[Rfam]
Small nucleolar RNA SNORD121A: an 81-nucleotide RNA from Leptobrachium leishanense. Pairs were carried over by alignment from the consensus structure, which was predicted with WAR. The family's RNA type in Rfam is C/D-box small nucleolar RNA. The organism belongs to Leptobrachium, within Eukaryota.
RNA sequence: UUUGUAAAGACAAUGAUGUAUUUUCCAAGCACGUAUCCGAGCCCUCUGUGCGGACAUCCACAACCACUGAGUCUUUACAGC
Number, nucleotide and partner (000 for none) at each position: 001u000002u080003u079004g078005u077006a076007a000008a074009g073010a072011c071012a000013a000014u000015g000016a000017u000018g000019u000020a000021u000022u000023u000024u000025c000026c000027a000028a000029g000030c000031a000032c000033g000034u000035a000036u000037c000038c000039g000040a000041g000042c000043c000044c000045u000046c000047u000048g000049u000050g000051c000052g000053g000054a000055c000056a000057u000058c000059c000060a000061c000062a000063a000064c000065c000066a000067c000068u000069g000070a000071g011072u010073c009074u008075u000076u006077a005078c004079a003080g002081c000
Source information: Rfam links the family to the GO terms nucleolus and RNA processing.